[Rfam]
RNA sequence: GUUCCCCUUACUGCAAUUCAAAGUUAAUUCAUUUCAGAAAAACCCUCGGGAACUG
Dot-bracket structure: ((((((.........................................))))))..
Numbered sequence: 001g002u003u004c005c006c007c008u009u010a011c012u013g014c015a016a017u018u019c020a021a022a023g024u025u026a027a028u029u030c031a032u033u034u035c036a037g038a039a040a041a042a043c044c045c046u047c048g049g050g051a052a053c054u055g
Stems, first nucleotide, its partner, number of pairs: 001053006